[Rfam]
RNA: ASdes TB sRNA
Organism: Rhodococcus sp. PBTS 1
RNA sequence: AGCUCGACGGGGUCCACGGCGCGCGUGGUCAUGAGGUAGUUGCGCAGCACGAUCGCGUGCCGGUUCUC
Numbered sequence: 001a002g003c004u005c006g007a008c009g010g011g012g013u014c015c016a017c018g019g020c021g022c023g024c025g026u027g028g029u030c031a032u033g034a035g036g037u038a039g040u041u042g043c044g045c046a047g048c049a050c051g052a053u054c055g056c057g058u059g060c061c062g063g064u065u066c067u068c
Stems, first nucleotide, its partner, number of pairs: 004063003008059002011030003015027004035056001038053001040052003044048001